[Rfam]
RNA sequence: UACCUGCGUAGAGGCGCAGCGCUUAUCAGUAGACCGGAACAGGGUGAUGCCGUUGACCCCGGUUGAAAGGAGGCGUUGCCGAAGUGGCGGUUUUUAUCGAGAACCGGCUGCUGGGAUCAGUGCUGAAAAGGCUGAUACUGUCACGAUAGCUGAUCGUGAUGCGCUACUGCUGGG
Numbered sequence: 001u002a003c004c005u006g007c008g009u010a011g012a013g014g015c016g017c018a019g020c021g022c023u024u025a026u027c028a029g030u031a032g033a034c035c036g037g038a039a040c041a042g043g044g045u046g047a048u049g050c051c052g053u054u055g056a057c058c059c060c061g062g063u064u065g066a067a068a069g070g071a072g073g074c075g076u077u078g079c080c081g082a083a084g085u086g087g088c089g090g091u092u093u094u095u096a097u098c099g100a101g102a103a104c105c106g107g108c109u110g111c112u113g114g115g116a117u118c119a120g121u122g123c124u125g126a127a128a129a130g131g132c133u134g135a136u137a138c139u140g141u142c143a144c145g146a147u148a149g150c151u152g153a154u155c156g157u158g159a160u161g162c163g164c165u166a167c168u169g170c171u172g173g174g
Base pairs, nucleotide, nucleotide: 008167009166010165011164016079017078018077019076020075021074022073023072024071032064033063034062035061036060037059083112084111085110086109087108088107089105090104091103092102093101113139114138116136117135118134119133120132121131141159142158143157144156145155146154147153
RNA: Lysine riboswitch aptamer